[Rfam]
Rfam assigns this 353-nucleotide part of an RNA from Dendroctonus ponderosae to the family "Eukaryotic large subunit ribosomal RNA". Lineage of the source: Eukaryota > Protostomia > Endopterygota > Scolytinae > Dendroctonus.

RNA sequence: GAAAGUUUUGCUACAGUAAUCCAGCUUAGUACGAGAGGAACUGCUGGUUCAGGUACUUGGUAAUGCAGCUAAUUGAACAAUUAGUGCUGCAAAGCUACCACCUGCUCAGUAAAGACUGAACGCCUCUAAGUCCGAACUGAAGCUGAACGCAAAGCUCCUCGUCGCUUUCACUUAUCUGCCAAGAGAUAUUAUUCUUGAAUGCCAACCUCGUCUCUCUGAGAUGACAAAAAGAUCCAAUUGGUGGAAGCGGUACAUCUUAUGCAGACUACAUAAAUAGGUUUAGGUAUUGUAAGCAUUAGAGCAGACGUUGUGCUGCGAUAUGCUGAGAUUCAGCCUACAAUCUAUAGAUGUGU
Number, nucleotide and partner (000 for none) at each position: 001g000002a000003a000004a156005g155006u154007u153008u152009u151010g150011c149012u000013a000014c145015a144016g143017u142018a000019a049020u000021c047022c046023a045024g044025c043026u000027u000028a000029g000030u000031a000032c000033g000034a000035g000036a000037g000038g000039a000040a000041c000042u000043g025044c024045u023046g022047g021048u000049u019050c104051a103052g102053g101054u100055a000056c000057u000058u097059g096060g095061u000062a000063a000064u091065g090066c089067a088068g087069c084070u083071a082072a081073u080074u079075g000076a000077a000078c000079a074080a073081u072082u071083a070084g069085u000086g000087c068088u067089g066090c065091a064092a000093a000094g000095c060096u059097a058098c000099c000100a054101c053102c052103u051104g050105c000106u140107c139108a138109g000110u000111a000112a000113a000114g132115a131116c130117u129118g000119a000120a000121c000122g000123c000124c000125u000126c000127u000128a000129a117130g116131u115132c114133c000134g000135a000136a000137c000138u108139g107140a106141a000142g017143c016144u015145g014146a000147a000148c000149g011150c010151a009152a008153a007154g006155c005156u004157c000158c000159u000160c000161g000162u000163c000164g248165c247166u246167u245168u244169c243170a242171c241172u240173u000174a000175u000176c000177u000178g000179c000180c000181a000182a000183g000184a000185g000186a000187u000188a000189u000190u000191a000192u000193u000194c000195u000196u000197g000198a000199a000200u000201g000202c000203c000204a000205a000206c000207c000208u000209c000210g000211u000212c000213u000214c000215u000216c000217u000218g000219a000220g000221a000222u000223g000224a000225c000226a000227a000228a000229a000230a000231g000232a000233u000234c000235c000236a000237a000238u000239u000240g172241g171242u170243g169244g168245a167246a166247g165248c164249g000250g000251u000252a351253c350254a349255u348256c347257u273258u272259a271260u270261g269262c000263a000264g000265a000266c000267u000268a000269c261270a260271u259272a258273a257274a000275u000276a343277g342278g341279u340280u339281u000282a336283g335284g334285u000286a329287u328288u000289g000290u000291a000292a000293g323294c322295a321296u320297u000298a319299g000300a000301g316302c315303a314304g313305a000306c000307g000308u000309u000310g000311u000312g000313c304314u303315g302316c301317g000318a000319u298320a296321u295322g294323c293324u000325g000326a000327g000328a287329u286330u000331c000332a000333g000334c284335c283336u282337a000338c000339a280340a279341u278342c277343u276344a000345u000346a000347g256348a255349u254350g253351u252352g000353u000

A search with the family's covariance model found it, with a score of 3083 bits.